[Rfam]
Rfam assigns this 54-nucleotide RNA from Merluccius polli to the family "UnaL2 LINE 3' element". A reference for the family is Baba et al. (2004), "Solution structure of an RNA stem-loop derived from the 3' conserved region of eel LINE UnaL2", RNA. The family's consensus secondary structure is taken from published work. The family's RNA type in Rfam is cis-regulatory element. The source organism's lineage runs through Eukaryota, Neopterygii, Osteoglossocephalai, Gadariae and Merluccius.
RNA sequence: UACUUACUGUAUUGUAAGUCGCUUUAGACAAAAGCGUCUGCUAAAUGCCCUGAA
Numbered sequence: 001u002a003c004u005u006a007c008u009g010u011a012u013u014g015u016a017a018g019u020c021g022c023u024u025u026a027g028a029c030a031a032a033a034g035c036g037u038c039u040g041c042u043a044a045a046u047g048c049c050c051u052g053a054a
Stems, first nucleotide, its partner, number of pairs: 013043001014041003020036006